The family of this 94-nucleotide RNA sequence from Heliomicrobium modesticaldum is "Selenocysteine transfer RNA". Rfam's curators put it in the seed alignment.
[Rfam]
RNA sequence: GGGGGUGAAUGAGGACUGGUGUCCUCCCUGGGCUUCAAACCCACGUGGCGCGCGGCCAACCCGGGCGCGGUAGGUUCGAUUCCUACCCACUCCC
Numbered sequence: 001g002g003g004g005g006u007g008a009a010u011g012a013g014g015a016c017u018g019g020u021g022u023c024c025u026c027c028c029u030g031g032g033c034u035u036c037a038a039a040c041c042c043a044c045g046u047g048g049c050g051c052g053c054g055g056c057c058a059a060c061c062c063g064g065g066c067g068c069g070g071u072a073g074g075u076u077c078g079a080u081u082c083c084u085a086c087c088c089a090c091u092c093c094c
Stems, first nucleotide, its partner, number of pairs: 001094007011026006027047001029043004049069005071085004